[Rfam]
RNA sequence: UGUGGCGAAUGCCACGAGGCCUCUGCCCGGAAAGGCCCUGACGCACUUCCCCAGCGCCAGGUUCUCCUUCGGGCAGGGACCUCGGAGCAUUCGCCCGUUCGA
Numbered sequence: 001u002g003u004g005g006c007g008a009a010u011g012c013c014a015c016g017a018g019g020c021c022u023c024u025g026c027c028c029g030g031a032a033a034g035g036c037c038c039u040g041a042c043g044c045a046c047u048u049c050c051c052c053a054g055c056g057c058c059a060g061g062u063u064c065u066c067c068u069u070c071g072g073g074c075a076g077g078g079a080c081c082u083c084g085g086a087g088c089a090u091u092c093g094c095c096c097g098u099u100c101g102a
Stems, first nucleotide, its partner, number of pairs: 010089003015084002018081002021078011033065003037061004042056003